[Rfam]
RNA: Iron response element I
Organism: Suricata suricatta
RNA sequence: CUGUCUUGCUUCAACAAUGUUUGGACAGAACAG
Numbered sequence: 001c002u003g004u005c006u007u008g009c010u011u012c013a014a015c016a017a018u019g020u021u022u023g024g025a026c027a028g029a030a031c032a033g
Stems, first nucleotide, its partner, number of pairs: 001033004006029002008026001010025005015019001